[Rfam]
RNA sequence: GAUAAUAGUGAUUAGCUUACAGACAUGUAAUGAUUAUCGGGGAGAUGAUCGCAAAAUCAAAAGGACUGAGUUGUC
Numbered sequence: 001g002a003u004a005a006u007a008g009u010g011a012u013u014a015g016c017u018u019a020c021a022g023a024c025a026u027g028u029a030a031u032g033a034u035u036a037u038c039g040g041g042g043a044g045a046u047g048a049u050c051g052c053a054a055a056a057u058c059a060a061a062a063g064g065a066c067u068g069a070g071u072u073g074u075c
Base pairs, nucleotide, nucleotide: 002074003073004072005071006070